A member of the RNA family "Small nucleolar RNA SNORD19" from Microcaecilia unicolor, 71 nucleotides long. On this family, see Huttenhofer et al., EMBO J 2001: "RNomics: an experimental approach that identifies 201 candidates for novel, small, non-messenger RNAs in mouse". The base pairs follow the family's consensus structure. The family is grouped with related families in Rfam's "SNORD19 clan". Lineage of the source: Eukaryota > Opisthokonta > Eumetazoa > Craniata > Microcaecilia.

RNA sequence: AAGAAAUGAUGAGGCAAAAAUUGUCUGAUAUGGUGAAGACUGUCAGAUCCAACUCUGAUCUUGCCCAGUGU
Numbered sequence: 001a002a003g004a005a006a007u008g009a010u011g012a013g014g015c016a017a018a019a020a021u022u023g024u025c026u027g028a029u030a031u032g033g034u035g036a037a038g039a040c041u042g043u044c045a046g047a048u049c050c051a052a053c054u055c056u057g058a059u060c061u062u063g064c065c066c067a068g069u070g071u
Base pairs, nucleotide, nucleotide: 001062002061003060004059